Shown here is a 305-nucleotide sequence from Solanum commersonii, a member of the family "Plant signal recognition particle RNA".
The family has 63 seed sequences and 4,988 matches in Rfam 15.1.
Gene Ontology terms of the family: SRP-dependent cotranslational protein targeting to membrane, signal sequence recognition and signal recognition particle, endoplasmic reticulum targeting.
The organism belongs to Solanum, within Eukaryota.
[Rfam]
RNA sequence: GCCGAGCUUUGUAACAUGAUCUUGUAACUCGAGUGAGGGCAUUAAUGUGGUGGAGUGUUGGGCUGAUCCAGAAGGCUGGACUUUGUUGGGCUAUUCGCUGGCCUGCCCUAUCCAAGCAUAGAGUUGGGCUGUGUAGCCCAAGCGAAGGCAUAGGCUGCUUGGCUCCUAAAGUGGGGUGGACCGCGUGAGGCUGGUUUCACAGAGCAAUGAACAACUCCCGCUCUGUGCAGUGGAAGGAUUAUGGGUCGGUGUUCAUGAAGUCCAACAAAAGCCUAAUGGGCUGCUCCAACUAAACCACCAUUUUU
Numbered sequence: 001g002c003c004g005a006g007c008u009u010u011g012u013a014a015c016a017u018g019a020u021c022u023u024g025u026a027a028c029u030c031g032a033g034u035g036a037g038g039g040c041a042u043u044a045a046u047g048u049g050g051u052g053g054a055g056u057g058u059u060g061g062g063c064u065g066a067u068c069c070a071g072a073a074g075g076c077u078g079g080a081c082u083u084u085g086u087u088g089g090g091c092u093a094u095u096c097g098c099u100g101g102c103c104u105g106c107c108c109u110a111u112c113c114a115a116g117c118a119u120a121g122a123g124u125u126g127g128g129c130u131g132u133g134u135a136g137c138c139c140a141a142g143c144g145a146a147g148g149c150a151u152a153g154g155c156u157g158c159u160u161g162g163c164u165c166c167u168a169a170a171g172u173g174g175g176g177u178g179g180a181c182c183g184c185g186u187g188a189g190g191c192u193g194g195u196u197u198c199a200c201a202g203a204g205c206a207a208u209g210a211a212c213a214a215c216u217c218c219c220g221c222u223c224u225g226u227g228c229a230g231u232g233g234a235a236g237g238a239u240u241a242u243g244g245g246u247c248g249g250u251g252u253u254c255a256u257g258a259a260g261u262c263c264a265a266c267a268a269a270a271g272c273c274u275a276a277u278g279g280g281c282u283g284c285u286c287c288a289a290c291u292a293a294a295c296c297a298c299c300a301u302u303u304u305u
Stems, first nucleotide, its partner, number of pairs: 001040003004023003008019002028037003044304002047301007056292002058289003061285003065281001068279003073274005078263009088254003092251002098249008107237002111234004116228009126165006133158006140151001142149002166171001173218005184209003191202003